Nucleotides: 065
Base pairs, nucleotide, nucleotide: 001065002064003063004062005061014051015050016049017048018047019046020045021044022043029039030038031037
Number, partner (000 for none) and nucleotide at each position: 001065a002064c003063c004062a005061u006000g007000u008000a009000a010000u011000g012000a013000u014051g015050a016049c017048u018047u019046g020045u021044g022043u023000g024000a025000a026000a027000a028000u029039c030038u031037g032000a033000a034000g035000u036000a037031c038030a039029g040000a041000a042000a043022a044021c045020a046019c047018a048017g049016g050015u051014u052000u053000g054000a055000u056000g057000u058000c059000a060000a061005a062004u063003g064002g065001u